[Rfam]
RNA sequence: UGGGUAGCGAUGAUUAUAAAGUAAUUCCUCGUACUGAUUGCUGUAGCCACGGCAUGACAGACCAUUUUACACCCAUAGAAUAUGAGCUUCC
Numbered sequence: 001u002g003g004g005u006a007g008c009g010a011u012g013a014u015u016a017u018a019a020a021g022u023a024a025u026u027c028c029u030c031g032u033a034c035u036g037a038u039u040g041c042u043g044u045a046g047c048c049a050c051g052g053c054a055u056g057a058c059a060g061a062c063c064a065u066u067u068u069a070c071a072c073c074c075a076u077a078g079a080a081u082a083u084g085a086g087c088u089u090c091c
Base pairs, nucleotide, nucleotide: 003091004090006088007087
RNA: Small nucleolar RNA snoR8a
Organism: Olea europaea